[Rfam]
RNA sequence: AAACCUUUGCCACACUCUGGCCGUUACCGUUCAAUCAUCCGAUUGAAAAACAUGUUCCUACGGUAUGGGCCUAUUUUGACGCAAAGAAGAUAAACACACUUGACCCGCUACUCACCGCGAUAUUCUUGGAGAUUUUUUUCUCGAGAUGGAUAUAGUGGUCCAUCUUAGUGGUCUACAU
Number, nucleotide and partner (000 for none) at each position: 001a000002a000003a000004c000005c000006u000007u084008u083009g082010c000011c000012a000013c000014a000015c000016u000017c000018u000019g071020g070021c069022c068023g000024u000025u065026a064027c063028c062029g000030u047031u046032c045033a044034a043035u042036c041037a000038u000039c000040c000041g036042a035043u034044u033045g032046a031047a030048a000049a000050a000051c000052a000053u000054g000055u000056u000057c000058c000059u000060a000061c000062g028063g027064u026065a025066u000067g000068g022069g021070c020071c019072u000073a000074u000075u000076u000077u000078g000079a000080c000081g000082c009083a008084a007085a000086g000087a000088a000089g000090a000091u000092a000093a000094a000095c000096a000097c000098a000099c000100u000101u000102g173103a172104c171105c170106c000107g000108c000109u000110a000111c000112u000113c000114a000115c158116c157117g156118c155119g000120a153121u152122a151123u000124u150125c149126u148127u000128g000129g000130a000131g000132a000133u000134u000135u000136u000137u000138u000139u000140c000141u000142c000143g000144a000145g000146a000147u000148g126149g125150a124151u122152a121153u120154a000155g118156u117157g116158g115159u000160c000161c000162a000163u000164c000165u000166u000167a000168g000169u000170g105171g104172u103173c102174u000175a000176c000177a000178u000